The family of this 88-nucleotide RNA sequence from Pelusios castaneus is "mir-16 microRNA precursor family".
[Rfam]
RNA sequence: GUCAGGCUGUAACAGCAAAUCAAAAUAGGUGUUAGGAUUCAGUGUUUUGAAUCCUAACACCUAUUUUGAUUUGCUGUUACAGCCUGAC
Numbered sequence: 001g002u003c004a005g006g007c008u009g010u011a012a013c014a015g016c017a018a019a020u021c022a023a024a025a026u027a028g029g030u031g032u033u034a035g036g037a038u039u040c041a042g043u044g045u046u047u048u049g050a051a052u053c054c055u056a057a058c059a060c061c062u063a064u065u066u067u068g069a070u071u072u073g074c075u076g077u078u079a080c081a082g083c084c085u086g087a088c
Base pairs, nucleotide, nucleotide: 001088002087003086005084006083007082010081011078012077013076014075015074016073017072018071022067023066024065025064026063027062028061029060030059031058032057033056034055035054036053037052

The match comes from Rfam's covariance-model search (47 bits). On this family, see Jin et al., Mol Cell 2020: "Structural Basis for pri-miRNA Recognition by Drosha". The family is grouped with related families in Rfam's "mir-15 clan".